[Rfam]
RNA sequence: GUUCCCUACGGUUCCCCCAGGUCCGCCGCAACGCCUGGGUCCGUGGGGCGGCUGGUCCGAAUGUGGACAGAGUGGCCUCUACGACAUGCCGCUUCGGACCAGCCACUUU
Numbered sequence: 001g002u003u004c005c006c007u008a009c010g011g012u013u014c015c016c017c018c019a020g021g022u023c024c025g026c027c028g029c030a031a032c033g034c035c036u037g038g039g040u041c042c043g044u045g046g047g048g049c050g051g052c053u054g055g056u057c058c059g060a061a062u063g064u065g066g067a068c069a070g071a072g073u074g075g076c077c078u079c080u081a082c083g084a085c086a087u088g089c090c091g092c093u094u095c096g097g098a099c100c101a102g103c104c105a106c107u108u109u
Stems, first nucleotide, its partner, number of pairs: 004048007016039006050104011
Rfam assigns this 109-nucleotide RNA from Devosia limi to the family "EcpR1". Pairs were carried over by alignment from the consensus structure, which was predicted with WAR. By type it is a small RNA. Rfam links the family to the GO terms regulation of translation in response to stress, negative regulation of cell cycle and mRNA binding. From the family's description: Perviously named SmelC291, SmrC10, or Sra33.